Notes:
The family of this 98-nucleotide RNA sequence from Fictibacillus arsenicus is "pan motif".
[Rfam]
RNA sequence: UAGGCAGUAUCCUUACAGUGGAACUGCACUAGUACUGCGAGUUUUUGAACAUAAACCAUAUAUCUGCCUAGAUCCAAAAUCAGGACCGGGACAGAGGG
Dot-bracket structure: ((((((((.((.........))))))).)))................................((((((.(.(((.......)))).))).)))....
It is annotated as a cis-regulatory element. The organism belongs to Fictibacillus, within Bacteria.